[Rfam]
RNA sequence: GUUCUGUUUCAGGGCGGAGUGAAAGUCUCCACCGGCAGUAUACAGGGCGUUGUUCCUGAUAGUCUGCGAGCCGCAAGGCAUGAUGGGUGUGAAUCCCAACCGACGGUUAUAGUCCGGAUGAAAGAAACAGGUG
Numbered sequence: 001g002u003u004c005u006g007u008u009u010c011a012g013g014g015c016g017g018a019g020u021g022a023a024a025g026u027c028u029c030c031a032c033c034g035g036c037a038g039u040a041u042a043c044a045g046g047g048c049g050u051u052g053u054u055c056c057u058g059a060u061a062g063u064c065u066g067c068g069a070g071c072c073g074c075a076a077g078g079c080a081u082g083a084u085g086g087g088u089g090u091g092a093a094u095c096c097c098a099a100c101c102g103a104c105g106g107u108u109a110u111a112g113u114c115c116g117g118a119u120g121a122a123a124g125a126a127a128c129a130g131g132u133g
Stems, first nucleotide, its partner, number of pairs: 003131008017029003031113002033102002035067004062100002070079003084098004104116003
Annotation:
This 133-nucleotide sequence from Agathobaculum faecis belongs to the Rfam family "FMN riboswitch aptamer (RFN element)". A search with the family's covariance model found it, with a score of 91 bits. The family's consensus secondary structure is taken from published work.